[Rfam]
Shown here is a 128-nucleotide RNA sequence from Helianthus petiolaris, a member of the family "MIR162_1 microRNA precursor family". The organism belongs to Helianthus, within Eukaryota. The sequence is in the family's curated seed alignment.
RNA sequence: UAGAGGAUCACUGGAUUCAGCGGUUCAUCGAUCUGUUCCAUAAUCCUAAUGAUUAAAUGUUCAUACGACGAUUGAGAGAGGUGGGAAAUGGAAUCGAUCGAUAAACCUCUGCAUCCAGUGUUCUUCCU
Numbered sequence: 001u002a003g004a005g006g007a008u009c010a011c012u013g014g015a016u017u018c019a020g021c022g023g024u025u026c027a028u029c030g031a032u033c034u035g036u037u038c039c040a041u042a043a044u045c046c047u048a049a050u051g052a053u054u055a056a057a058u059g060u061u062c063a064u065a066c067g068a069c070g071a072u073u074g075a076g077a078g079a080g081g082u083g084g085g086a087a088a089u090g091g092a093a094u095c096g097a098u099c100g101a102u103a104a105a106c107c108u109c110u111g112c113a114u115c116c117a118g119u120g121u122u123c124u125u126c127c128u
Stems, first nucleotide, its partner, number of pairs: 013116003018111003022107004027102007036093006